[Rfam]
Saccharopolyspora sRNA 350: a 505-nucleotide sequence from Lipingzhangella halophila. By type it is an antisense RNA. Its family is annotated with regulation of secondary metabolite biosynthetic process in the Gene Ontology. The match comes from Rfam's covariance-model search (142 bits). For this family Rfam cites "Prediction and characterization of small non-coding RNAs related to secondary metabolites in Saccharopolyspora erythraea" (Liu et al., PLoS One, 2013). Taxonomically the source falls in Lipingzhangella (Bacteria, Actinomycetota, Actinomycetes, Streptosporangiales).
RNA sequence: CGGACCGAGUACGCCCACCGCGCGUCGGAGUCCACCAGUGCGUGCGCGCCGAAGUGGUCCCCAUCGAUCAGCGUCUCCAGCACGACACCGUCGCCGUACUCCCCCGCACCGAUCCGGUUCACCUUGCCGUGCGCGAGCAGGAACACCCGGUCGACCGGCUGGCCCGCGGUCGCGAUCAGCUCGCCGGGCUGGUACUCGACCUGCUCGAAGCGGUCGGCCAGCUCGCCCAGCACGGCCUCGUCGCCGAAGCCGCGCAACAGCGGAAGUUCGCCGAGCUCCCGCGGGAUGACCUGGACCUGGUCUCCGCUGGUGAGGAACGUGACGCGGCCGUCGCCGACGGUGUACGUCACCCGGCGGUUCACCCGGUAGGUCCCGGCGGUCGCCUCCACCCACGGCAGUACCCGCAGCAGCCACCGCGAGGUGAUCCCCUGCAUCUGCGGGACCGACUUCGUCGUGGUCGCCAGGUUGCGCGCGGCCCUGGUCCCCAGACUCUGCGGCGCCUGGG
Numbered sequence: 001c002g003g004a005c006c007g008a009g010u011a012c013g014c015c016c017a018c019c020g021c022g023c024g025u026c027g028g029a030g031u032c033c034a035c036c037a038g039u040g041c042g043u044g045c046g047c048g049c050c051g052a053a054g055u056g057g058u059c060c061c062c063a064u065c066g067a068u069c070a071g072c073g074u075c076u077c078c079a080g081c082a083c084g085a086c087a088c089c090g091u092c093g094c095c096g097u098a099c100u101c102c103c104c105c106g107c108a109c110c111g112a113u114c115c116g117g118u119u120c121a122c123c124u125u126g127c128c129g130u131g132c133g134c135g136a137g138c139a140g141g142a143a144c145a146c147c148c149g150g151u152c153g154a155c156c157g158g159c160u161g162g163c164c165c166g167c168g169g170u171c172g173c174g175a176u177c178a179g180c181u182c183g184c185c186g187g188g189c190u191g192g193u194a195c196u197c198g199a200c201c202u203g204c205u206c207g208a209a210g211c212g213g214u215c216g217g218c219c220a221g222c223u224c225g226c227c228c229a230g231c232a233c234g235g236c237c238u239c240g241u242c243g244c245c246g247a248a249g250c251c252g253c254g255c256a257a258c259a260g261c262g263g264a265a266g267u268u269c270g271c272c273g274a275g276c277u278c279c280c281g282c283g284g285g286a287u288g289a290c291c292u293g294g295a296c297c298u299g300g301u302c303u304c305c306g307c308u309g310g311u312g313a314g315g316a317a318c319g320u321g322a323c324g325c326g327g328c329c330g331u332c333g334c335c336g337a338c339g340g341u342g343u344a345c346g347u348c349a350c351c352c353g354g355c356g357g358u359u360c361a362c363c364c365g366g367u368a369g370g371u372c373c374c375g376g377c378g379g380u381c382g383c384c385u386c387c388a389c390c391c392a393c394g395g396c397a398g399u400a401c402c403c404g405c406a407g408c409a410g411c412c413a414c415c416g417c418g419a420g421g422u423g424a425u426c427c428c429c430u431g432c433a434u435c436u437g438c439g440g441g442a443c444c445g446a447c448u449u450c451g452u453c454g455u456g457g458u459c460g461c462c463a464g465g466u467u468g469c470g471c472g473c474g475g476c477c478c479u480g481g482u483c484c485c486c487a488g489a490c491u492c493u494g495c496g497g498c499g500c501c502u503g504g505g
Stems, first nucleotide, its partner, number of pairs: 003390001007386003011380001013328002021321004025316002033312007046304001048302001050300001052298001054233002058229001062225001065111002068108001079100002082097003086093001117222003122217002127212001130209001131206001133204003140196002146192002153189001155187005160178002165174003234296001236294002240290004245285001251281002254278001256277001258275001260271003329342004351379003355375003361371003391431002394428002397425001399423003403418003407415001437476002440473001443470001446467001447465003451461002477504002480501003486497001488495001